The record is a 53-nucleotide RNA sequence, which matches "Glutamine riboswitch aptamer (glnA leader)" in Rfam.
For this family Rfam cites "Bacterial aptamers that selectively bind glutamine" (Ames and Breaker, RNA Biol, 2011).
The family's consensus secondary structure is taken from published work.
The sequence is in the family's curated seed alignment.
RNA sequence: AUCGUUCAUCUCUAUUAGGAGACGGAAGUAGACAAAAGUUGAAGGAACGCGCU
Numbered sequence: 001a002u003c004g005u006u007c008a009u010c011u012c013u014a015u016u017a018g019g020a021g022a023c024g025g026a027a028g029u030a031g032a033c034a035a036a037a038g039u040u041g042a043a044g045g046a047a048c049g050c051g052c053u
Stems, first nucleotide, its partner, number of pairs: 003049005009022005025050001031040003